[Rfam]
RNA sequence: ACUCUUAUCGUCUAACGGUGAGGACAACGGGUUUUCACCCCGUAAAUUUGGGUUCGAUUCCCAAUAAGAGUA
Dot-bracket structure: (((((((..((((........)))).(((((.......)))))....(((((.......)))))))))))).

Rfam assigns this 72-nucleotide RNA sequence from Tetrahymena pyriformis to the family "tRNA".
The family's RNA type in Rfam is transfer RNA.
The family's consensus secondary structure is taken from published work.
Taxonomically the source falls in Tetrahymena (Eukaryota, Sar, Ciliophora, Tetrahymenina).